[Rfam]
RNA sequence: UCUUGCAUAUUUCGGGUCUCCUCGAUGUACGAGCCUUGCUUGUAAAGGGUUCGUUGUCGUUGAAACCUGCAUAGUGUAAGA
Numbered sequence: 001u002c003u004u005g006c007a008u009a010u011u012u013c014g015g016g017u018c019u020c021c022u023c024g025a026u027g028u029a030c031g032a033g034c035c036u037u038g039c040u041u042g043u044a045a046a047g048g049g050u051u052c053g054u055u056g057u058c059g060u061u062g063a064a065a066c067c068u069g070c071a072u073a074g075u076g077u078a079a080g081a
Base pairs, nucleotide, nucleotide: 001081002080003079004078005077006076013069014068015067016066017065019063020062031052032051033050034049035048
RNA: mir-981 microRNA precursor family
Organism: Orchesella cincta